[Rfam]
RNA sequence: AGCUUAGAAAUACACAAGAGUGUGUAUAAAGCUGAUAAGCAAGAUAUUGAACAGUUGAGUUUAGAAUAGGGUAGCAGAGAAUGAGUUUAGCUGAGCUGAGAUAAACACGUUUUUAUUCUGCCCAAAAGAAGCCUUUCUUUUGGGUUUAUUUC
Numbered sequence: 001a002g003c004u005u006a007g008a009a010a011u012a013c014a015c016a017a018g019a020g021u022g023u024g025u026a027u028a029a030a031g032c033u034g035a036u037a038a039g040c041a042a043g044a045u046a047u048u049g050a051a052c053a054g055u056u057g058a059g060u061u062u063a064g065a066a067u068a069g070g071g072u073a074g075c076a077g078a079g080a081a082u083g084a085g086u087u088u089a090g091c092u093g094a095g096c097u098g099a100g101a102u103a104a105a106c107a108c109g110u111u112u113u114u115a116u117u118c119u120g121c122c123c124a125a126a127a128g129a130a131g132c133c134u135u136u137c138u139u140u141u142g143g144g145u146u147u148a149u150u151u152c
Base pairs, nucleotide, nucleotide: 002032003031004030010027011026012025013024014023015022069123070122071121072120073119074118076117077116078114079113080112081110082109083108085102086101087100